[Rfam]
RNA sequence: GCACCGUCCUCACCACUCGGAUCGUCCGGCACGUUCCUGCCGGUGGAAAGGACUGCAC
Numbered sequence: 001g002c003a004c005c006g007u008c009c010u011c012a013c014c015a016c017u018c019g020g021a022u023c024g025u026c027c028g029g030c031a032c033g034u035u036c037c038u039g040c041c042g043g044u045g046g047a048a049a050g051g052a053c054u055g056c057a058c
Base pairs, nucleotide, nucleotide: 009050010049013046014045015044026043027042028041029040030039031038